Rfam assigns this 72-nucleotide RNA sequence from Penicillium angulare to the family "tRNA". Rfam links the family to the GO term triplet codon-amino acid adaptor activity.

RNA sequence: GCCCUUGUGGCCAAGUGGUAAGGCGCUUGACUUGUAAUCAAGAGACCGCGCGUUCAAUUCGCGCCGGGGGCA
Numbered sequence: 001g002c003c004c005u006u007g008u009g010g011c012c013a014a015g016u017g018g019u020a021a022g023g024c025g026c027u028u029g030a031c032u033u034g035u036a037a038u039c040a041a042g043a044g045a046c047c048g049c050g051c052g053u054u055c056a057a058u059u060c061g062c063g064c065c066g067g068g069g070g071c072a
Stems, first nucleotide, its partner, number of pairs: 001071007010024003026042005048064005
Dot-bracket structure: (((((((..(((.........))).(((((.......))))).....(((((.......)))))))))))).
It is annotated as a transfer RNA. The base pairs follow the family's consensus structure, which is taken from published work.